[Rfam]
RNA: TPP riboswitch aptamer (THI element)
Organism: Pluralibacter gergoviae
RNA sequence: CUACAUGACUCGGGGUGCCCUUCCUUGCGAAGGCUGAGAAAUACCCGUACCACCUGAUCUGGAUAAUGCCAGCGUAGGGAAGUCAGUGACCCUCGCG
Numbered sequence: 001c002u003a004c005a006u007g008a009c010u011c012g013g014g015g016u017g018c019c020c021u022u023c024c025u026u027g028c029g030a031a032g033g034c035u036g037a038g039a040a041a042u043a044c045c046c047g048u049a050c051c052a053c054c055u056g057a058u059c060u061g062g063a064u065a066a067u068g069c070c071a072g073c074g075u076a077g078g079g080a081a082g083u084c085a086g087u088g089a090c091c092c093u094c095g096c097g
Base pairs, nucleotide, nucleotide: 006085007084008083009082010081011047012046013045014044016041017034018033019032021030053078054077055076056075059072060071061070062069